[Rfam]
RNA: ZMP/ZTP riboswitch aptamer (pfl RNA motif)
Organism: Xylanimonas cellulosilytica
RNA sequence: GGCCGCGGCCGUGACUGGCGAGGGUGGGUCACCACCGGGGAGCGGCCCCGACGCCUCACAGGUGUCGCCAGCCUUCGUGCGCCGCCCGCCUGGGCGCCGGGG
Numbered sequence: 001g002g003c004c005g006c007g008g009c010c011g012u013g014a015c016u017g018g019c020g021a022g023g024g025u026g027g028g029u030c031a032c033c034a035c036c037g038g039g040g041a042g043c044g045g046c047c048c049c050g051a052c053g054c055c056u057c058a059c060a061g062g063u064g065u066c067g068c069c070a071g072c073c074u075u076c077g078u079g080c081g082c083c084g085c086c087c088g089c090c091u092g093g094g095c096g097c098c099g100g101g102g
Stems, first nucleotide, its partner, number of pairs: 004050002007047006015039002017090004024035004079097005